RNA sequence: UUGGCUUUAAUGAAGGCCUGGCCUUAAAGCAGUCCUCUGUGUGGCCUGGCUGGAUGUCCCCUGCCAU
Numbered sequence: 001u002u003g004g005c006u007u008u009a010a011u012g013a014a015g016g017c018c019u020g021g022c023c024u025u026a027a028a029g030c031a032g033u034c035c036u037c038u039g040u041g042u043g044g045c046c047u048g049g050c051u052g053g054a055u056g057u058c059c060c061c062u063g064c065c066a067u
Stems, first nucleotide, its partner, number of pairs: 002066004015051004020046004030039003